[Rfam]
A member of the RNA family "Small nucleolar RNA R44/J54/Z268 family" from Salvia splendens, 90 nucleotides long. Clan: SNORD74 clan. Its family is annotated with nucleolus and RNA processing in the Gene Ontology. The family's consensus secondary structure was predicted with PFOLD. Lineage of the source: Eukaryota > Embryophyta > eudicotyledons > Salvia > core Calosphace.

RNA sequence: GAAGCAAGUGAUGAUAGAAAAGACAGGGACAUCAGGAUUCCAUUUGGAGUAAUGAUAGACUUAGUCUAAUGGGAAUCUCUCUGAUGCUCA
Numbered sequence: 001g002a003a004g005c006a007a008g009u010g011a012u013g014a015u016a017g018a019a020a021a022g023a024c025a026g027g028g029a030c031a032u033c034a035g036g037a038u039u040c041c042a043u044u045u046g047g048a049g050u051a052a053u054g055a056u057a058g059a060c061u062u063a064g065u066c067u068a069a070u071g072g073g074a075a076u077c078u079c080u081c082u083g084a085u086g087c088u089c090a
Stems, first nucleotide, its partner, number of pairs: 003088004